[Rfam]
RNA sequence: UAAAUCUUUAAUUCAGUCCUGAGAGGCUGACAAGAUGUAGAUUAAAAAUCUUUAAUAUUUUUAUGCAUGUAUAAAACUUCUUGUCAGUAGGCAAGAAGUUUUUUUAU
Numbered sequence: 001u002a003a004a005u006c007u008u009u010a011a012u013u014c015a016g017u018c019c020u021g022a023g024a025g026g027c028u029g030a031c032a033a034g035a036u037g038u039a040g041a042u043u044a045a046a047a048a049u050c051u052u053u054a055a056u057a058u059u060u061u062u063a064u065g066c067a068u069g070u071a072u073a074a075a076a077c078u079u080c081u082u083g084u085c086a087g088u089a090g091g092c093a094a095g096a097a098g099u100u101u102u103u104u105u106a107u
Stems, first nucleotide, its partner, number of pairs: 004036005013030006042065001045062004073102013